RNA sequence: AACUCAUCGAGAGUAGUGGAGGGAUAGGCCCUGUGAAGCUACAGCAACCUUUCAAUGUUGAAAACGGUGCUAAAUCCGACAGCGAGAUGCUGACAGAUGGGGA
Numbered sequence: 001a002a003c004u005c006a007u008c009g010a011g012a013g014u015a016g017u018g019g020a021g022g023g024a025u026a027g028g029c030c031c032u033g034u035g036a037a038g039c040u041a042c043a044g045c046a047a048c049c050u051u052u053c054a055a056u057g058u059u060g061a062a063a064a065c066g067g068u069g070c071u072a073a074a075u076c077c078g079a080c081a082g083c084g085a086g087a088u089g090c091u092g093a094c095a096g097a098u099g100g101g102g103a
Stems, first nucleotide, its partner, number of pairs: 003101006013042005021031003025079001027077002043071004048067002050063004075095001080092005